Shown here is a 110-nucleotide RNA sequence from Bos taurus, a member of the family "Small nucleolar RNA SNORD23". The pairing is the family consensus, mapped onto this sequence. Gene Ontology terms of the family: nucleolus and RNA processing. The source organism's lineage runs through Eukaryota, Craniata, Amniota, Artiodactyla and Bos. It is annotated as a C/D-box small nucleolar RNA.
RNA sequence: UGCCCAGUGAUGACACCCAUCCUUGCUCCCCGUGUCCGCAGGGACUGUGGGCGACAUCACGGCUACCCCCAGGCGGGGCCGGUUGGGCUAAUGCCUGGGGGCUGAGGGCA
Numbered sequence: 001u002g003c004c005c006a007g008u009g010a011u012g013a014c015a016c017c018c019a020u021c022c023u024u025g026c027u028c029c030c031c032g033u034g035u036c037c038g039c040a041g042g043g044a045c046u047g048u049g050g051g052c053g054a055c056a057u058c059a060c061g062g063c064u065a066c067c068c069c070c071a072g073g074c075g076g077g078g079c080c081g082g083u084u085g086g087g088c089u090a091a092u093g094c095c096u097g098g099g100g101g102c103u104g105a106g107g108g109c110a
Base pairs, nucleotide, nucleotide: 001110002109003108004107005106